[Rfam]
RNA sequence: UUACAAGAUUAUUAUAUUCAACUGUGUUCACGGCGUGAAACACGGGAUUACAUUAUUUUGAAAAUGGAAAGUGAAUCAAUUAACAUAAUAGACU
Numbered sequence: 001u002u003a004c005a006a007g008a009u010u011a012u013u014a015u016a017u018u019c020a021a022c023u024g025u026g027u028u029c030a031c032g033g034c035g036u037g038a039a040a041c042a043c044g045g046g047a048u049u050a051c052a053u054u055a056u057u058u059u060g061a062a063a064a065u066g067g068a069a070a071g072u073g074a075a076u077c078a079a080u081u082a083a084c085a086u087a088a089u090a091g092a093c094u
Stems, first nucleotide, its partner, number of pairs: 009091007017083002020081002023078002026076006034066003037059004042054001
Overview: Shown here is a 94-nucleotide sequence from Nicotiana tabacum, a member of the family "MIR6152 microRNA precursor family". The family's consensus secondary structure was predicted with RNAalifold. The family has 2 seed sequences and 5,807 matches in Rfam 15.1. Its family is annotated with RISC complex and miRNA-mediated post-transcriptional gene silencing in the Gene Ontology. A search with the family's covariance model found it, with a score of 80 bits.